[Rfam]
RNA sequence: UCGUCAGGCUCAGUCCCCUCCCGAUAAAUCCUAAAUCCGGACCUUCUGGGGGGCUGACCCCAGCUU
Numbered sequence: 001u002c003g004u005c006a007g008g009c010u011c012a013g014u015c016c017c018c019u020c021c022c023g024a025u026a027a028a029u030c031c032u033a034a035a036u037c038c039g040g041a042c043c044u045u046c047u048g049g050g051g052g053g054c055u056g057a058c059c060c061c062a063g064c065u066u
Stems, first nucleotide, its partner, number of pairs: 003064002007060002010057002013055001015053005023046002026044001030040002
The record is a 66-nucleotide sequence from Erinaceus europaeus, which matches "mir-484 microRNA precursor family" in Rfam. On this family, see Ahn et al., Mol Hum Reprod 2010: "MicroRNA transcriptome in the newborn mouse ovaries determined by massive parallel sequencing". Rfam 15.1 lists 128 matches to the family in 128 species. The base pairs follow the family's consensus structure, which was predicted with RNAalifold.